[Rfam]
RNA sequence: ACCGGUUGCGGGCCCCAUAGACACGGCAGCGGCGGGGGACCCACGGCCGGAACGUUGAUUCCGGCGGGGGUGAAGCUGGCACAGCCAGCCGGGCAGACCUUGAGCCCGAACCCGACAGCUAACUUCGCAGGCGUCGAGAGGUAACUU
Numbered sequence: 001a002c003c004g005g006u007u008g009c010g011g012g013c014c015c016c017a018u019a020g021a022c023a024c025g026g027c028a029g030c031g032g033c034g035g036g037g038g039a040c041c042c043a044c045g046g047c048c049g050g051a052a053c054g055u056u057g058a059u060u061c062c063g064g065c066g067g068g069g070g071u072g073a074a075g076c077u078g079g080c081a082c083a084g085c086c087a088g089c090c091g092g093g094c095a096g097a098c099c100u101u102g103a104g105c106c107c108g109a110a111c112c113c114g115a116c117a118g119c120u121a122a123c124u125u126c127g128c129a130g131g132c133g134u135c136g137a138g139a140g141g142u143a144a145c146u147u
Base pairs, nucleotide, nucleotide: 002131003130007031008030009029032128033127034126035125036124037123042067068113069112070111076088077087078086079085091107092106093105094104
Dot-bracket structure: .((...(((...................)))((((((....(........................)(((.....((((.....))))..((((.........))))...))).........)))))).))................

A member of the RNA family "c-di-AMP riboswitch aptamer (ydaO/yuaA leader)" from Rarobacter faecitabidus, 147 nucleotides long. A search with the family's covariance model found it, with a score of 61 bits. From the family's description: This family represents a conserved RNA structure found upstream of the ydaO and yuaA genes in Bacillus subtilis and related genes in other bacteria.